[Rfam]
RNA sequence: CCCUGUAUUCGAAAGUGAUCGUGGGCUGCCUGUGUCCCGGUCAUUGGUAGUGCAGGGAGAGGAAUGGCUGAAAGACACUCUACCUGUAGAGUUUGGAGGGUUCCCUAUCCCUUCUGAACUCUGAAACUUUUCCACA
Numbered sequence: 001c002c003c004u005g006u007a008u009u010c011g012a013a014a015g016u017g018a019u020c021g022u023g024g025g026c027u028g029c030c031u032g033u034g035u036c037c038c039g040g041u042c043a044u045u046g047g048u049a050g051u052g053c054a055g056g057g058a059g060a061g062g063a064a065u066g067g068c069u070g071a072a073a074g075a076c077a078c079u080c081u082a083c084c085u086g087u088a089g090a091g092u093u094u095g096g097a098g099g100g101u102u103c104c105c106u107a108u109c110c111c112u113u114c115u116g117a118a119c120u121c122u123g124a125a126a127c128u129u130u131u132c133c134a135c136a
Base pairs, nucleotide, nucleotide: 001057002056003055004054005053006052007051008050009049014045015044016043017042018041019040020039021038023037024036025035026034067133070131071130072129073128074127091119092118093117094116095115096113097112098111099110100109

Source information:
Small nucleolar RNA SNORA71: a 136-nucleotide RNA sequence from Dipodomys ordii. It is annotated as an H/ACA-box small nucleolar RNA. Its family is annotated with nucleolus and RNA processing in the Gene Ontology. About the family: The members of this family belong to the H/ACA class of snoRNAs which bind a number of proteins (including dyskerin, Gar1p and Nop10p) to form snoRNP complexes. This class of snoRNAs are thought to guide the sites of modification of uridines to pseudouridines by forming direct base pairing interactions with substrate RNAs. This family includes U71 (SNORA71), ACA39 (SNORA39) and ACA60 (SNORA60). U71 and ACA60 are predicted to guide the pseudouridylation of U406 and U1004 in 18S rRNA respectively.